[Rfam]
RNA: Potassium channel RNA editing signal
Organism: Scyliorhinus torazame
RNA sequence: GUCGGGUAUGGCGACAUUUAUCCUAAAACCUUGUUGGGUAAGAUAGUUGGUGGACUAUGUUGCAUCGCAGGUGUUUUGGUGAUUGCGCUUCCUAUACCAAUUAUUGUGAAUAAU
Dot-bracket structure: ((.(..(((((.((....(((...............((.(........(.............)..........).))................)))....)).)))))..).))